[Rfam]
RNA sequence: CACCGGUGGAGACAGCACUGGACGCUUUGAUUUGGUGUGCGCCUGUGUGAGAGGUAAGCCCUACGGCCUGCUUUUCCGGGCCCGUCCUUUGCCUUUUUCGCCAUCUGGCCUAUCCUGACCCCCGGCCUCUGUCGCUUUCAGAUCCGUGACCUCUCCGCGCCCGGGUUCUGCGGCCUGUUGCUGGAUUGUCCGCGGCUCCUGCUGACCGACUGGCUGACGGCGCCACCGCGAUGAAGCUGUGUCUGGUGGCUGCGGUGCUCCUG
Dot-bracket structure: ...((((.(.....(.(((............(.((.((...................(((..((((...............................)))...)..)))........)).)).).......................................))).)..((((.....))))...............................................................).))))...........
About this RNA:
The family of this 263-nucleotide RNA from Chinchilla lanigera is "bip internal ribosome entry site (IRES)". Rfam's curators write: This family represents the bip internal ribosome entry site (IRES). BiP protein expression has been found to be significantly enhanced by the heat shock response due to IRES-dependent translation. It is thought that this translational mechanism is essential for the survival of cells under stress. Taxonomically the source falls in Chinchilla (Eukaryota, Eumetazoa, Rodentia, Hystricomorpha). A reference for the family is Kim and Jang (2002), "Continuous heat shock enhances translational initiation directed by internal ribosomal entry site", Biochem Biophys Res Commun.